[Rfam]
RNA sequence: GCGGAAAAACAGGCGAGCGCUGUAACUCAUCAUGUUAAAGAGGAAAGUCCGGGCUCCACAAAAACACAACGCCGAGUAACGCUCGGCCAAGGUAACUUGAGGGAUAGUGCAACAGAAAAAAUACCGCCUUUUUUUAAAGGUAAGGGUGAAAUGGUGCGGUAAGAGCGCACCGCGUUAGGAGUAAUUCUAUAUGGCAUGGUAAACCCCGUUGGGAGCAAAGCCAAAUAAAAGUGAUCAAGUAUAAAAAAUACUGUGCGAUGUUUUUGCGCAAUGUCACUUGGGUAGGCUGCUAAAGCACUUUAGUAAUAAAGUUGCGUAGAUAAAUGAUCGCCACGACAGAACCCGGCUUAUAGUUUUUCCGCUUUU
Numbered sequence: 001g002c003g004g005a006a007a008a009a010c011a012g013g014c015g016a017g018c019g020c021u022g023u024a025a026c027u028c029a030u031c032a033u034g035u036u037a038a039a040g041a042g043g044a045a046a047g048u049c050c051g052g053g054c055u056c057c058a059c060a061a062a063a064a065c066a067c068a069a070c071g072c073c074g075a076g077u078a079a080c081g082c083u084c085g086g087c088c089a090a091g092g093u094a095a096c097u098u099g100a101g102g103g104a105u106a107g108u109g110c111a112a113c114a115g116a117a118a119a120a121a122u123a124c125c126g127c128c129u130u131u132u133u134u135u136a137a138a139g140g141u142a143a144g145g146g147u148g149a150a151a152u153g154g155u156g157c158g159g160u161a162a163g164a165g166c167g168c169a170c171c172g173c174g175u176u177a178g179g180a181g182u183a184a185u186u187c188u189a190u191a192u193g194g195c196a197u198g199g200u201a202a203a204c205c206c207c208g209u210u211g212g213g214a215g216c217a218a219a220g221c222c223a224a225a226u227a228a229a230a231g232u233g234a235u236c237a238a239g240u241a242u243a244a245a246a247a248a249u250a251c252u253g254u255g256c257g258a259u260g261u262u263u264u265u266g267c268g269c270a271a272u273g274u275c276a277c278u279u280g281g282g283u284a285g286g287c288u289g290c291u292a293a294a295g296c297a298c299u300u301u302a303g304u305a306a307u308a309a310a311g312u313u314g315c316g317u318a319g320a321u322a323a324a325u326g327a328u329c330g331c332c333a334c335g336a337c338a339g340a341a342c343c344c345g346g347c348u349u350a351u352a353g354u355u356u357u358u359c360c361g362c363u364u365u366u
Base pairs, nucleotide, nucleotide: 001362002361003360004359005358006357007356008355009354010353011351012332013331014330015329016328018326020040021039023037024036025035026034045349046348047347049346050345051344052343053342054215055214056213057212064265067211068210069209070208071207072086073085074084075083076082087101088099089098090097091096102206103205107204108203109200110199124145125144126141127140128139129138130137131136153171154170155169156168157167158166172195173193174192175191176189177188178187179186180185219288220287221286222285229279230278231277232276233275234274259271262268295315296314297313298311299310300309301308302307
Source information: Rfam assigns this 366-nucleotide RNA sequence from Holospora obtusa to the family "Bacterial RNase P class A". By type it is a ribozyme. It scores 293 bits against the family's covariance model. NCBI's taxonomy places the organism under Bacteria, Pseudomonadati, Pseudomonadota, Holosporales, Holospora obtusa.